[Rfam]
RNA sequence: GACUACCUAUCGCUGAGUUUCCGUAAGGGAAACGGGGGAACCAAGUUACAUGGGGUGAAUUUUAGCUGGGGCUGUUACCUGCAGCCUGCAGCUAAAUAGGGCGACUCUCGCGUCCGAACCCGUCAGCUAACCUCGUAAGCGUGAAGAGAGAGGCA
Numbered sequence: 001g002a003c004u005a006c007c008u009a010u011c012g013c014u015g016a017g018u019u020u021c022c023g024u025a026a027g028g029g030a031a032a033c034g035g036g037g038g039a040a041c042c043a044a045g046u047u048a049c050a051u052g053g054g055g056u057g058a059a060u061u062u063u064a065g066c067u068g069g070g071g072c073u074g075u076u077a078c079c080u081g082c083a084g085c086c087u088g089c090a091g092c093u094a095a096a097u098a099g100g101g102c103g104a105c106u107c108u109c110g111c112g113u114c115c116g117a118a119c120c121c122g123u124c125a126g127c128u129a130a131c132c133u134c135g136u137a138a139g140c141g142u143g144a145a146g147a148g149a150g151a152g153g154c155a
Base pairs, nucleotide, nucleotide: 011141012140013139014138018031019030020029032136033135034134035133036132037131042052043051053121054120055119061096062095063094064093065092066091067090068089099115100114101113102112

Rfam assigns this 155-nucleotide sequence from Paenibacillus ginsengarvi to the family "c-di-AMP riboswitch aptamer (ydaO/yuaA leader)".
Rfam's curators write: This family represents a conserved RNA structure found upstream of the ydaO and yuaA genes in Bacillus subtilis and related genes in other bacteria.
NCBI's taxonomy places the organism under Bacteria, Bacillati, Bacilli, Caryophanales, Paenibacillus.
The match comes from Rfam's covariance-model search (94 bits).